[Rfam]
A member of the RNA family "DUF805 RNA" from Phnomibacter ginsenosidimutans, 66 nucleotides long. NCBI's taxonomy places the organism under Bacteria, Pseudomonadati, Bacteroidota, Chitinophagales, Phnomibacter. It is annotated as a cis-regulatory element. The base pairs follow the family's consensus structure, which is taken from published work. It scores 64 bits against the family's covariance model.

RNA sequence: CUGAUAUGGAGACCAGUAACCAUCACAAACGGGGCGGAACUGAAAAGCCAAACGAGUAAGACCGCA
Number, nucleotide and partner (000 for none) at each position: 001c000002u000003g000004a000005u000006a023007u022008g021009g020010a000011g000012a000013c000014c000015a000016g000017u000018a000019a000020c009021c008022a007023u006024c000025a000026c000027a000028a000029a000030c000031g000032g000033g049034g048035c047036g000037g000038a000039a000040c060041u059042g000043a000044a000045a000046a000047g035048c034049c033050a000051a000052a000053c000054g000055a000056g000057u000058a000059a041060g040061a000062c000063c000064g000065c000066a000